[Rfam]
The family of this 220-nucleotide RNA sequence from Slackia equolifaciens is "FMN riboswitch aptamer (RFN element)". The organism belongs to Slackia, within Bacteria. About the family: The RFN element is a highly conserved domain that is found frequently in the 5'-untranslated regions of prokaryotic mRNAs that encode for flavin mononucleotide (FMN) biosynthesis and transport proteins.

RNA sequence: GUACUGUUUCAGGGCGAGGUGGAAUUCCUCACUGGCGGUAAAUCGGACGCAGGACGCGCGUGCCCGCUCGGCGGAAAGCGCGGUUACACCUGCGUGCGUCUGGGCACAGGGCCCGCGCUCACCGAUGAGCCCGCGACCCUGCCGGCGUUGGUUCGCUUGGCAGGCUGAUCCGGUGAAAACCCGGGGCCAACGGUCAAAGUCCGGAUGGAAGAGGCAGGUG
Numbered sequence: 001g002u003a004c005u006g007u008u009u010c011a012g013g014g015c016g017a018g019g020u021g022g023a024a025u026u027c028c029u030c031a032c033u034g035g036c037g038g039u040a041a042a043u044c045g046g047a048c049g050c051a052g053g054a055c056g057c058g059c060g061u062g063c064c065c066g067c068u069c070g071g072c073g074g075a076a077a078g079c080g081c082g083g084u085u086a087c088a089c090c091u092g093c094g095u096g097c098g099u100c101u102g103g104g105c106a107c108a109g110g111g112c113c114c115g116c117g118c119u120c121a122c123c124g125a126u127g128a129g130c131c132c133g134c135g136a137c138c139c140u141g142c143c144g145g146c147g148u149u150g151g152u153u154c155g156c157u158u159g160g161c162a163g164g165c166u167g168a169u170c171c172g173g174u175g176a177a178a179a180c181c182c183g184g185g186g187c188c189a190a191c192g193g194u195c196a197a198a199g200u201c202c203g204g205a206u207g208g209a210a211g212a213g214g215c216a217g218g219u220g
Stems, first nucleotide, its partner, number of pairs: 004217007017029003031200002033189002035134004138164005169185005191203003
Dot-bracket structure: ...(((((((......(((.......))).[[((((((............................................................................................))))...(((((.................)))))....(((((.......)))))..)).(((.....]]))).......)))))))...